A member of the RNA family "Small nucleolar RNA SNORA42/SNORA80 family" from Ursus americanus, 139 nucleotides long. Rfam's curators write: The members of this family belong to the H/ACA class of snoRNAs that guide the sites of modification of uridines to pseudouridines. Human ACA42 (SNORA42) was cloned from HeLa cells by immunoprecipitation with anti-GAR1 antibody. Its is predicted to guide the pseudouridylation of residues U109 and U572 of 18S rRNA. ACA42 shares the same host gene with ACA26, ACA46, ACA50. This family also includes mammalian snoRNA ACA67 (SNORA80) which was identified by computational screening and its expression in mouse experimentally verified by Northern blot and primer extension analysis. ACA67 is proposed to guide the pseudouridylation of the same 18S rRNA residues as ACA42. The match comes from Rfam's covariance-model search (81 bits). Rfam classes the family as an H/ACA-box small nucleolar RNA. The family's consensus secondary structure was predicted with RNAalifold.
RNA sequence: GCGUGAUAAUGGAUUGAUGUCAGGCCCUUCUCUGUGGGCCUCUCAUAGCGUACCUGUGCUAGAGGAGUAUGCAACCCUGAACCAUUGCCCACCUUCCUCACUGGUGUGCUGUGUGAGCACUGAAGGGGGCUGUAACUUG
Numbered sequence: 001g002c003g004u005g006a007u008a009a010u011g012g013a014u015u016g017a018u019g020u021c022a023g024g025c026c027c028u029u030c031u032c033u034g035u036g037g038g039c040c041u042c043u044c045a046u047a048g049c050g051u052a053c054c055u056g057u058g059c060u061a062g063a064g065g066a067g068u069a070u071g072c073a074a075c076c077c078u079g080a081a082c083c084a085u086u087g088c089c090c091a092c093c094u095u096c097c098u099c100a101c102u103g104g105u106g107u108g109c110u111g112u113g114u115g116a117g118c119a120c121u122g123a124a125g126g127g128g129g130c131u132g133u134a135a136c137u138u139g
Base pairs, nucleotide, nucleotide: 001059002058003057004056005054007052008051015048017046018045019044022041023040024039025037026036072132073131075129076128077127083122084121088117090113091112092111093108095106